[Rfam]
RNA sequence: GAGAUUUCGCCAGGAUCUACCUCCUCCCAGAUCCUGACGAAUACGGCCCGAGACUACCUCCUCCCAGUCGAGGGCCACCAUAAAGACACCCGCCGGACCUCCUCCCCCGGCGGGUGUUUUUU
Dot-bracket structure: ......(((.(((((((............))))))).)))....(((((..(((............)))..))))).........(((((((((((..........))))))))))).....
Numbered sequence: 001g002a003g004a005u006u007u008c009g010c011c012a013g014g015a016u017c018u019a020c021c022u023c024c025u026c027c028c029a030g031a032u033c034c035u036g037a038c039g040a041a042u043a044c045g046g047c048c049c050g051a052g053a054c055u056a057c058c059u060c061c062u063c064c065c066a067g068u069c070g071a072g073g074g075c076c077a078c079c080a081u082a083a084a085g086a087c088a089c090c091c092g093c094c095g096g097a098c099c100u101c102c103u104c105c106c107c108c109g110g111c112g113g114g115u116g117u118u119u120u121u122u
Stems, first nucleotide, its partner, number of pairs: 007040003011036007045076005052069003086117011